[Rfam]
RNA sequence: CCUAGUAUACCCUGUAGAUCCGGGUUUUUGUAGAUCAGUUCAGAAGCUCGUUUCUACAGGUAUGUUAGGA
Numbered sequence: 001c002c003u004a005g006u007a008u009a010c011c012c013u014g015u016a017g018a019u020c021c022g023g024g025u026u027u028u029u030g031u032a033g034a035u036c037a038g039u040u041c042a043g044a045a046g047c048u049c050g051u052u053u054c055u056a057c058a059g060g061u062a063u064g065u066u067a068g069g070a
Stems, first nucleotide, its partner, number of pairs: 002068006010060002016055003021050010
This 70-nucleotide RNA sequence from Trichuris suis belongs to the Rfam family "mir-10 microRNA precursor family". NCBI's taxonomy places the organism under Eukaryota, Metazoa, Nematoda, Trichuridae, Trichuris. The literature on the family includes a 2001 paper in Cell by Ambros, "microRNAs: tiny regulators with great potential".